[Rfam]
A member of the RNA family "Small nucleolar RNA Z266" from Brassica carinata, 96 nucleotides long. Its family is annotated with RNA processing and nucleolus in the Gene Ontology. The base pairs follow the family's consensus structure, which was predicted with PFOLD. A search with the family's covariance model found it, with a score of 58 bits. Taxonomically the source falls in Brassica (Eukaryota, Streptophytina, Mesangiospermae, Brassicales). A reference for the family is Chen et al. (2003), "The high diversity of snoRNAs in plants: identification and comparative study of 120 snoRNA genes from Oryza sativa", Nucleic Acids Res.
RNA sequence: GGAUUGGGUGAAUGAUGAUUCAAUUAGAUGUGCGAAUGGUUUCAUUAUGAGCACACAACACUAAAUUUGGCAAUUUUUAUCUGACACUUCCAUUCC
Numbered sequence: 001g002g003a004u005u006g007g008g009u010g011a012a013u014g015a016u017g018a019u020u021c022a023a024u025u026a027g028a029u030g031u032g033c034g035a036a037u038g039g040u041u042u043c044a045u046u047a048u049g050a051g052c053a054c055a056c057a058a059c060a061c062u063a064a065a066u067u068u069g070g071c072a073a074u075u076u077u078u079a080u081c082u083g084a085c086a087c088u089u090c091c092a093u094u095c096c
Stems, first nucleotide, its partner, number of pairs: 001096003005092003008087003
Dot-bracket structure: (((.((((((..........................................................................)))..))).)))